[Rfam]
The family of this 83-nucleotide RNA from Megalops atlanticus is "mir-15 microRNA precursor family". Taxonomically the source falls in Megalops (Eukaryota, Teleostomi, Actinopterygii, Elopomorpha). Clan: mir-15 clan. It scores 59 bits against the family's covariance model. From the family's description: This family represents the related mir-15a and mir-15b sequences. In humans miR-15a and miR-16 are clustered within 0.5 kb at 13q14. This region has been shown to be deleted in more than half of B cell chronic lymphocytic leukaemias (CLL). Both miR-15a and miR-16 are deleted or down-regulated in more than two thirds of CLL cases. The mature sequence is excised from the 5' arm of the hairpin. Rfam links the family to the GO terms miRNA-mediated post-transcriptional gene silencing and RISC complex.
RNA sequence: CCUAGCGACAGUGUAGCAGCACAGAAUGGUUUGUGGGUUAUACGGAGAUGCAGGCCAUCCUGUGCUGCCGCAGUGACGCCUGG
Numbered sequence: 001c002c003u004a005g006c007g008a009c010a011g012u013g014u015a016g017c018a019g020c021a022c023a024g025a026a027u028g029g030u031u032u033g034u035g036g037g038u039u040a041u042a043c044g045g046a047g048a049u050g051c052a053g054g055c056c057a058u059c060c061u062g063u064g065c066u067g068c069c070g071c072a073g074u075g076a077c078g079c080c081u082g083g
Stems, first nucleotide, its partner, number of pairs: 001083002005079002013071002016068009026058010